[Rfam]
RNA: TPP riboswitch aptamer (THI element)
RNA sequence: CUGUUCUUGUCGGGGUGCCCAGAAGCAUGGGCUGAGAUCGGAAAGUUCCGGAUCCCGUUGAACCUGAUCAGGUUAAGGCCUGCGUAGGGAACAAGAGGUCUUCGCCC
Numbered sequence: 001c002u003g004u005u006c007u008u009g010u011c012g013g014g015g016u017g018c019c020c021a022g023a024a025g026c027a028u029g030g031g032c033u034g035a036g037a038u039c040g041g042a043a044a045g046u047u048c049c050g051g052a053u054c055c056c057g058u059u060g061a062a063c064c065u066g067a068u069c070a071g072g073u074u075a076a077g078g079c080c081u082g083c084g085u086a087g088g089g090a091a092c093a094a095g096a097g098g099u100c101u102u103c104g105c106c107c
Stems, first nucleotide, its partner, number of pairs: 006095005011057004016051001017032005039050004063088004069082004